Small nucleolar RNA SNORD83: a 78-nucleotide sequence from Channa argus. The family's RNA type in Rfam is C/D-box small nucleolar RNA. Pairs were carried over by alignment from the consensus structure, which was predicted with PFOLD. A search with the family's covariance model found it, with a score of 41 bits.

Nucleotides: 078
Stems, first nucleotide, its partner, number of pairs: 001077004031040002034038001
Number, partner (000 for none) and nucleotide at each position: 001077g002076c003075c004074a005000c006000a007000u008000g009000a010000u011000g012000a013000a014000a015000u016000g017000g018000a019000g020000u021000a022000g023000c024000u025000g026000c027000a028000g029000u030000a031040g032039c033000u034038c035000u036000c037000a038034g039032g040031c041000c042000a043000u044000g045000g046000u047000g048000a049000c050000c051000u052000u053000c054000u055000a056000u057000c058000u059000a060000u061000c062000a063000c064000c065000c066000u067000u068000u069000u070000c071000u072000g073000a074004u075003g076002g077001c078000u